[Rfam]
RNA sequence: AGUCAUAUGCUUGUCUCAAAGAUUAAGCCAUGCAGGUCUAAGUAUAAGCCGAAAAGUGAAACCGCGAAUGGCUCAUUACAUCAGUUAUGGUUCCUUAGAUCUCUGGUAUCCUACUUGGAUAACCCUGGAAAUUCUAGAGCUAAUACAUGAAGAGUCCCAGCUUCGCGCAGGGAGUGUUUGUUAGACUAAAGCCAAUUGGGAAGUUCGCUUCUCAUUCAAUUGGUGAGUCAUGACAACUUUGAGCAGAUCGCACAGUCAAGUACUGGCGACGACUCUUUCAAAUGUCUGCCCUAUCAACUUGAUGGUAGGUUAUGUGCCUACCAUGGUGAUAACGGGUGACGGAGAAUCAGGGUUCGAUACCGGAGAGGGAGCCUGAGAGACGGCUACCACAUCCAAGGAAGGCAGCAGGCACGCAAAUUACCCACUCCUAGAACAGGGAGGUAGUGACGAAAAAUAACAAUACGGGACUCAUCCGAGGCCCCGUAAUUGGAAUGAGUACACUUUAAAUCCUUUAACAAGGAUCUAUUGGAGGGCAAGUCUGGUGCCAGCAGCCGCGGUAAUUCCAGCUCCAAUAGCGUAUGUUAAAAUUGCUG
Numbered sequence: 001a002g003u004c005a006u007a008u009g010c011u012u013g014u015c016u017c018a019a020a021g022a023u024u025a026a027g028c029c030a031u032g033c034a035g036g037u038c039u040a041a042g043u044a045u046a047a048g049c050c051g052a053a054a055a056g057u058g059a060a061a062c063c064g065c066g067a068a069u070g071g072c073u074c075a076u077u078a079c080a081u082c083a084g085u086u087a088u089g090g091u092u093c094c095u096u097a098g099a100u101c102u103c104u105g106g107u108a109u110c111c112u113a114c115u116u117g118g119a120u121a122a123c124c125c126u127g128g129a130a131a132u133u134c135u136a137g138a139g140c141u142a143a144u145a146c147a148u149g150a151a152g153a154g155u156c157c158c159a160g161c162u163u164c165g166c167g168c169a170g171g172g173a174g175u176g177u178u179u180g181u182u183a184g185a186c187u188a189a190a191g192c193c194a195a196u197u198g199g200g201a202a203g204u205u206c207g208c209u210u211c212u213c214a215u216u217c218a219a220u221u222g223g224u225g226a227g228u229c230a231u232g233a234c235a236a237c238u239u240u241g242a243g244c245a246g247a248u249c250g251c252a253c254a255g256u257c258a259a260g261u262a263c264u265g266g267c268g269a270c271g272a273c274u275c276u277u278u279c280a281a282a283u284g285u286c287u288g289c290c291c292u293a294u295c296a297a298c299u300u301g302a303u304g305g306u307a308g309g310u311u312a313u314g315u316g317c318c319u320a321c322c323a324u325g326g327u328g329a330u331a332a333c334g335g336g337u338g339a340c341g342g343a344g345a346a347u348c349a350g351g352g353u354u355c356g357a358u359a360c361c362g363g364a365g366a367g368g369g370a371g372c373c374u375g376a377g378a379g380a381c382g383g384c385u386a387c388c389a390c391a392u393c394c395a396a397g398g399a400a401g402g403c404a405g406c407a408g409g410c411a412c413g414c415a416a417a418u419u420a421c422c423c424a425c426u427c428c429u430a431g432a433a434c435a436g437g438g439a440g441g442u443a444g445u446g447a448c449g450a451a452a453a454a455u456a457a458c459a460a461u462a463c464g465g466g467a468c469u470c471a472u473c474c475g476a477g478g479c480c481c482c483g484u485a486a487u488u489g490g491a492a493u494g495a496g497u498a499c500a501c502u503u504u505a506a507a508u509c510c511u512u513u514a515a516c517a518a519g520g521a522u523c524u525a526u527u528g529g530a531g532g533g534c535a536a537g538u539c540u541g542g543u544g545c546c547a548g549c550a551g552c553c554g555c556g557g558u559a560a561u562u563c564c565a566g567c568u569c570c571a572a573u574a575g576c577g578u579a580u581g582u583u584a585a586a587a588u589u590g591c592u593g
Stems, first nucleotide, its partner, number of pairs: 001583003005580007014452001016450002020445001021412001027410003031407003036065002042062002048057002072365003082288003087283002091281002097276003114149001116147002123139001125137004155173003160168002178236006191224004201210003248269004253265004290336003297327003302324008340362003344355004367388002370385003390401001392399002418443001420442003426438004458489003461485006468477003496516002498513001500512001526572006539566004548555002
This 593-nucleotide part of an RNA from Notodromas monacha belongs to the Rfam family "Eukaryotic small subunit ribosomal RNA". The base pairs follow the family's consensus structure, which is taken from published work. The literature on the family includes a 2001 paper in Science by Yusupov et al., "Crystal structure of the ribosome at 5.5 A resolution". It scores 1660 bits against the family's covariance model.